Plastid-psbA-1 3UTR RNA: a 115-nucleotide sequence from Juglans regia. About the family: Plastid psbA-1 is a non-coding RNA (ncRNA) present in plastids. A search with the family's covariance model found it, with a score of 106 bits. A reference for the family is Richter et al. (2023), "Retrograde signaling in plants: A critical review focusing on the GUN pathway and beyond", Plant Commun. The family's consensus secondary structure was predicted with LocARNA.
RNA sequence: UCGAAGCUCCAUCUACAAGUGGAUAAGGCUUCAGUCCUAGUAUAUACAAGUUAUUGAAAAUAAAGGGGCAAUAAUCAACUUCUUGUUCUAUCAAGAGGAUUGGUAUUACUCCUUU
Numbered sequence: 001u002c003g004a005a006g007c008u009c010c011a012u013c014u015a016c017a018a019g020u021g022g023a024u025a026a027g028g029c030u031u032c033a034g035u036c037c038u039a040g041u042a043u044a045u046a047c048a049a050g051u052u053a054u055u056g057a058a059a060a061u062a063a064a065g066g067g068g069c070a071a072u073a074a075u076c077a078a079c080u081u082c083u084u085g086u087u088c089u090a091u092c093a094a095g096a097g098g099a100u101u102g103g104u105a106u107u108a109c110u111c112c113u114u115u
Stems, first nucleotide, its partner, number of pairs: 008023005062115007070107004077100001080097005